[Rfam]
RNA: MIR394 microRNA precursor family
RNA sequence: CUUGCAGAGGUUAUUGGCAUUCUGUCCACCUCCUACUCUCUCUAUCUCCAAAUUCAAGAGAUCUAACAACGGAGGUGGGCAUCCUGCCAACAGAUCUCCGUUGG
Numbered sequence: 001c002u003u004g005c006a007g008a009g010g011u012u013a014u015u016g017g018c019a020u021u022c023u024g025u026c027c028a029c030c031u032c033c034u035a036c037u038c039u040c041u042c043u044a045u046c047u048c049c050a051a052a053u054u055c056a057a058g059a060g061a062u063c064u065a066a067c068a069a070c071g072g073a074g075g076u077g078g079g080c081a082u083c084c085u086g087c088c089a090a091c092a093g094a095u096c097u098c099c100g101u102u103g104g
Base pairs, nucleotide, nucleotide: 011094014090015089016088017087018086019085023081024080025079026078027077028076029075030074031073032072033071